[Rfam]
Shown here is a 97-nucleotide RNA from Parasphingorhabdus halotolerans, a member of the family "Glycine riboswitch aptamer".
RNA sequence: CGAGGCUGUGCGGGAGAGAGCUGACUCCUUGAAUAUACCAGCCGCCGAAGGAGCAACCGCCCCGGAAACUCUCAGGCACCUGAACCGCAUAAGUCUU
Numbered sequence: 001c002g003a004g005g006c007u008g009u010g011c012g013g014g015a016g017a018g019a020g021c022u023g024a025c026u027c028c029u030u031g032a033a034u035a036u037a038c039c040a041g042c043c044g045c046c047g048a049a050g051g052a053g054c055a056a057c058c059g060c061c062c063c064g065g066a067a068a069c070u071c072u073c074a075g076g077c078a079c080c081u082g083a084a085c086c087g088c089a090u091a092a093g094u095c096u097u
Stems, first nucleotide, its partner, number of pairs: 007091007020042004044077003047073002051071003057065002
This family represents the bacterial glycine riboswitch.